[Rfam]
Background: TPP riboswitch aptamer (THI element): a 121-nucleotide RNA sequence from Tabrizicola oligotrophica. The match comes from Rfam's covariance-model search (54 bits). NCBI's taxonomy places the organism under Bacteria, Pseudomonadati, Pseudomonadota, Paracoccaceae, Tabrizicola.

RNA sequence: CGCCUACGUCAGGGGAGUCCCGCCAAGGGGACUGAGAGGCUGACAGGGGGAAACCCCGGUGAAGCGACCCUUUGAACCUGACCCAGUUGACACUGGCGUAGGAAGACCGAAGGGCAUUUCC
Numbered sequence: 001c002g003c004c005u006a007c008g009u010c011a012g013g014g015g016a017g018u019c020c021c022g023c024c025a026a027g028g029g030g031a032c033u034g035a036g037a038g039g040c041u042g043a044c045a046g047g048g049g050g051a052a053a054c055c056c057c058g059g060u061g062a063a064g065c066g067a068c069c070c071u072u073u074g075a076a077c078c079u080g081a082c083c084c085a086g087u088u089g090a091c092a093c094u095g096g097c098g099u100a101g102g103a104a105g106a107c108c109g110a111a112g113g114g115c116a117u118u119u120c121c
Base pairs, nucleotide, nucleotide: 008107009106010105011071012070013069014068017032018031019030020029021028039065040064041063077102078101079100080099083096084095085094086093